[Rfam]
RNA: small nucleolar RNA snoR134
Organism: Cucumis melo
RNA sequence: AUGCCUGAUCAUCCCCGGGCUACUCUGAAUUCUGAUUAUCUCGCUGACGGUGAUAGCCCCACUGCUCGUGCUAGUCUGUCGCCGUUUAGUGUUGCAGGUUAGCCGUGCUCUUUUACACGGCUGAUGUGUGUGAAAUAACGGCCACAUCC
Numbered sequence: 001a002u003g004c005c006u007g008a009u010c011a012u013c014c015c016c017g018g019g020c021u022a023c024u025c026u027g028a029a030u031u032c033u034g035a036u037u038a039u040c041u042c043g044c045u046g047a048c049g050g051u052g053a054u055a056g057c058c059c060c061a062c063u064g065c066u067c068g069u070g071c072u073a074g075u076c077u078g079u080c081g082c083c084g085u086u087u088a089g090u091g092u093u094g095c096a097g098g099u100u101a102g103c104c105g106u107g108c109u110c111u112u113u114u115a116c117a118c119g120g121c122u123g124a125u126g127u128g129u130g131u132g133a134a135a136u137a138a139c140g141g142c143c144a145c146a147u148c149c
Stems, first nucleotide, its partner, number of pairs: 003071002006068003010064001017059005023052001024050002081142006090133001093130004098125001102121003